[Rfam]
RNA sequence: AAGGUCGAGAGGCGCUGCAACGGACUCCGGUCCGCCACGCUCGACCUCGUUCCUUCUCUACCAAGGGCGCCUCCGAAUU
Numbered sequence: 001a002a003g004g005u006c007g008a009g010a011g012g013c014g015c016u017g018c019a020a021c022g023g024a025c026u027c028c029g030g031u032c033c034g035c036c037a038c039g040c041u042c043g044a045c046c047u048c049g050u051u052c053c054u055u056c057u058c059u060a061c062c063a064a065g066g067g068c069g070c071c072u073c074c075g076a077a078u079u
Stems, first nucleotide, its partner, number of pairs: 002047007021034005
Source information
Shown here is a 79-nucleotide RNA from Rugosimonospora africana, a member of the family "SAH (S-adenosyl-L-homocysteine) riboswitch aptamer". Gene Ontology terms of the family: S-adenosylhomocysteine metabolic process and regulation of gene expression. Taxonomically the source falls in Rugosimonospora (Bacteria, Bacillati, Micromonosporales, Micromonosporaceae). Pairs were carried over by alignment from the consensus structure, which is taken from published work. Rfam 15.1 lists 1,354 matches to the family in 1,132 species.